About this RNA: A member of the RNA family "serC leader" from Aliiroseovarius pelagivivens, 52 nucleotides long. The base pairs follow the family's consensus structure. The match comes from Rfam's covariance-model search (69 bits). A reference for the family is Corbino et al. (2005), "Evidence for a second class of S-adenosylmethionine riboswitches and other regulatory RNA motifs in alpha-proteobacteria", Genome Biol. It is annotated as a cis-regulatory leader. About the family: This family is a putative regulatory RNA structure that is found upstream of the serC-serA operon in some alpha-proteobacteria. The final stem of the structure overlaps the ribosome binding site of the serC reading frame. NCBI's taxonomy places the organism under Bacteria, Pseudomonadota, Alphaproteobacteria, Rhodobacterales, Aliiroseovarius.
[Rfam]
RNA sequence: CCGUGGGACACCCUUCCCCAACGAAGGGCAAAUAUCUGCGAGGGUAUCAUGA
Numbered sequence: 001c002c003g004u005g006g007g008a009c010a011c012c013c014u015u016c017c018c019c020a021a022c023g024a025a026g027g028g029c030a031a032a033u034a035u036c037u038g039c040g041a042g043g044g045u046a047u048c049a050u051g052a
Base pairs, nucleotide, nucleotide: 011028012027013026014025015024016023032047033046034045035044036043037042